RNA sequence: UGCCCUAGCAGCGGGAACAGUACUGCAGUAAGCGAUCAGGGCUCUGGAGUAAUGUUUCUGCCGCUUGAGCA
Numbered sequence: 001u002g003c004c005c006u007a008g009c010a011g012c013g014g015g016a017a018c019a020g021u022a023c024u025g026c027a028g029u030a031a032g033c034g035a036u037c038a039g040g041g042c043u044c045u046g047g048a049g050u051a052a053u054g055u056u057u058c059u060g061c062c063g064c065u066u067g068a069g070c071a
Stems, first nucleotide, its partner, number of pairs: 002070002005067001008064002011061009021051001023049002026046003031043003
Rfam assigns this 71-nucleotide sequence from Erinaceus europaeus to the family "mir-503 microRNA precursor family".
The source organism's lineage runs through Eukaryota, Teleostomi, Dipnotetrapodomorpha, Amniota and Erinaceus.